[Rfam]
A member of the RNA family "epsC RNA" from Bacillus sp. DNRA2, 112 nucleotides long.
RNA sequence: GGGUGAUGUCUUCUAACCGGUAUCAAUGGAGGCACUCGGUCAUGCUGUGGGUUGUACCAGACCUUAGACGUGAGUCGUCAGGAGUGUGAUGUGAGGCGGGGUUAGAUGCCCU
Numbered sequence: 001g002g003g004u005g006a007u008g009u010c011u012u013c014u015a016a017c018c019g020g021u022a023u024c025a026a027u028g029g030a031g032g033c034a035c036u037c038g039g040u041c042a043u044g045c046u047g048u049g050g051g052u053u054g055u056a057c058c059a060g061a062c063c064u065u066a067g068a069c070g071u072g073a074g075u076c077g078u079c080a081g082g083a084g085u086g087u088g089a090u091g092u093g094a095g096g097c098g099g100g101g102u103u104a105g106a107u108g109c110c111c112u
Stems, first nucleotide, its partner, number of pairs: 002018003007034007035095004039090008049064005067079004098112005
The family's RNA type in Rfam is cis-regulatory element.